RNA sequence: AUUCGGGUCUGGCAAACUUAUCGAAAGAUAAGGACGCAAAGCCUACGGCCUAAGGGGAAACCUAGGGUAGCGAGGUUGCAACC
Numbered sequence: 001a002u003u004c005g006g007g008u009c010u011g012g013c014a015a016a017c018u019u020a021u022c023g024a025a026a027g028a029u030a031a032g033g034a035c036g037c038a039a040a041g042c043c044u045a046c047g048g049c050c051u052a053a054g055g056g057g058a059a060a061c062c063u064a065g066g067g068u069a070g071c072g073a074g075g076u077u078g079c080a081a082c083c
Base pairs, nucleotide, nucleotide: 012037013036017032018031019030020029021028022027040077041076042075043074046072047071048068049067050066055062056061
Dot-bracket structure: ...........((...((((((....))))))...))..((((..(((((....((....))...)))..)).))))......
Shown here is an 83-nucleotide RNA from Thalassomonas actiniarum, a member of the family "c-di-GMP-I riboswitch aptamer". The family is grouped with related families in Rfam's "c-di-GMP_I riboswitch clan". The match comes from Rfam's covariance-model search (69 bits).